[Rfam]
RNA sequence: AUUCCUAUAUGUGACUGGCGCAACAUGGAUGACCAUGGGGGAGCAUAUAGCGUAUAAGCCGCGCGCCUGGGCAAACACU
Numbered sequence: 001a002u003u004c005c006u007a008u009a010u011g012u013g014a015c016u017g018g019c020g021c022a023a024c025a026u027g028g029a030u031g032a033c034c035a036u037g038g039g040g041g042a043g044c045a046u047a048u049a050g051c052g053u054a055u056a057a058g059c060c061g062c063g064c065g066c067c068u069g070g071g072c073a074a075a076c077a078c079u
Stems, first nucleotide, its partner, number of pairs: 003052001005050008015040002017067005025036004058072003

About this RNA
The record is a 79-nucleotide RNA from Priestia megaterium, which matches "ZMP/ZTP riboswitch aptamer (pfl RNA motif)" in Rfam. The family's consensus secondary structure is taken from published work.